Shown here is a 108-nucleotide RNA sequence from Echites umbellatus, a member of the family "Plastid-psbA-1 3UTR RNA".
RNA sequence: UAGAAGCUCCAUCUAUCGAUGGCUAAGUCCCCCGGUCUUAGUGUAUAGGAAUAAAGGAGCAAUAAUAACCUUCUUGUUCUAGCAAGAGGGUGGUAUUGCUCCUUUAUU
Dot-bracket structure: ........((((......))))..............................((((((((((((..(.(.(((((........)))))).)..))))))))))))...
Pairs were carried over by alignment from the consensus structure, which was predicted with LocARNA. On this family, see Richter et al., Plant Commun 2023: "Retrograde signaling in plants: A critical review focusing on the GUN pathway and beyond". Rfam describes the family as follows. Plastid psbA-1 is a non-coding RNA (ncRNA) present in plastids. It was identified in inverted repeat sequences in the 3 prime untranslate region (3UTR) of photosystem II quinone-binding protein (psbA).